[Rfam]
A member of the RNA family "Small nucleolar RNA SNORA12" from Dipodomys ordii, 145 nucleotides long. About the family: U108 belongs to the H/ACA family of snoRNAs. The sequence is predicted to guide the pseudouridylation of the U372 residue in the 28S rRNA subunit. However it has not been reported as a pseudouridylation site. By type it is an H/ACA-box small nucleolar RNA. Lineage of the source: Eukaryota > Craniata > Sarcopterygii > Tetrapoda > Dipodomys. Gene Ontology terms of the family: RNA processing and nucleolus.
RNA sequence: AGUUGUGGUGGUUUCUUUCUGGCACAUUUGUUAAAUUUCAAAUGGGCCUGACUCUACCACAUAUAUUAUACUGGAGCUAGCAAAGGCUUGAAGACAGAGAAUUCUCUCGAGCAUUUUCCUACAUCAAAGAUUGGCUCCCACAUGU
Number, nucleotide and partner (000 for none) at each position: 001a000002g000003u000004u000005g060006u059007g058008g057009u056010g055011g054012u000013u000014u000015c000016u000017u000018u000019c000020u000021g048022g047023c046024a000025c044026a043027u042028u041029u040030g039031u000032u000033a000034a000035a000036u000037u000038u000039c030040a029041a028042a027043u026044g025045g000046g023047c022048c021049u000050g000051a000052c000053u000054c011055u010056a009057c008058c007059a006060c005061a000062u000063a000064u000065a000066u000067u000068a000069u000070a000071c000072u000073g138074g137075a136076g135077c134078u133079a088080g087081c086082a000083a000084a000085g000086g081087c080088u079089u000090g000091a000092a000093g000094a000095c000096a000097g000098a000099g000100a000101a000102u000103u000104c000105u130106c129107u126108c000109g000110a000111g000112c000113a000114u000115u000116u000117u000118c000119c000120u000121a000122c000123a000124u000125c000126a107127a000128a000129g106130a105131u000132u000133g078134g077135c076136u075137c074138c073139c000140a000141c000142a000143u000144g000145u000